This 77-nucleotide RNA sequence from Phreatobacter cathodiphilus belongs to the Rfam family "Makes More Granules Regulator RNA (mmgR)". About the family: SuhB later renamed mmgR (makes more granules regulator) was a putative non-coding RNA found multiple times in the Agrobacterium tumefaciens genome and related alpha-proteobacteria. Other non-coding RNAs uncovered in the same analysis include: speF, ybhL, metA, and serC.Several studies inSinorhizobium meliloti showed that suhB element is indeed a non-coding RNA:firstly it was detected on Northern blot and called Sm8RNA, secondly in an RNAseq study referred to as SmelC689.The mutant phenotype's (strain lacking the small RNA) cytoplasm contains higher content of polyhydroxybutyrate (PBH)storage granules than wild type strain. The sRNA is required to limit the PBH intracellular accumulation when the nitrogen-fixing Sinorhizobium meliloti is under condition of surplus carbon in relation to nitrogen. It is annotated as a small RNA. Lineage of the source: Bacteria > Pseudomonadati > Alphaproteobacteria > Phreatobacteraceae > Phreatobacter.
RNA sequence: CCCCGCAGCCCUCCUUGGGCGUUUCCUCCCUAGACUUGGGCCGCUCACGAAAGUGAGCGGCCUCUUUCUUUGGCGCC
Numbered sequence: 001c002c003c004c005g006c007a008g009c010c011c012u013c014c015u016u017g018g019g020c021g022u023u024u025c026c027u028c029c030c031u032a033g034a035c036u037u038g039g040g041c042c043g044c045u046c047a048c049g050a051a052a053g054u055g056a057g058c059g060g061c062c063u064c065u066u067u068c069u070u071u072g073g074c075g076c077c
Stems, first nucleotide, its partner, number of pairs: 008020004039062009